Shown here is a 72-nucleotide RNA from Mycoplasma capricolum, a member of the family "tRNA".
It is annotated as a transfer RNA.
Pairs were carried over by alignment from the consensus structure, which is taken from published work.
The organism belongs to Mycoplasma, within Bacteria.
RNA sequence: AGGAGAGUAGUUCAAUGGUAGAACGUCGGUCUCCAAAACCGAGCGUUGAGGGUUCGAUUCCUUUCUCUCCUG
Numbered sequence: 001a002g003g004a005g006a007g008u009a010g011u012u013c014a015a016u017g018g019u020a021g022a023a024c025g026u027c028g029g030u031c032u033c034c035a036a037a038a039c040c041g042a043g044c045g046u047u048g049a050g051g052g053u054u055c056g057a058u059u060c061c062u063u064u065c066u067c068u069c070c071u072g
Base pairs, nucleotide, nucleotide: 001071002070003069004068005067006066007065010024011023012022013021026042027041028040029039030038048064049063050062051061052060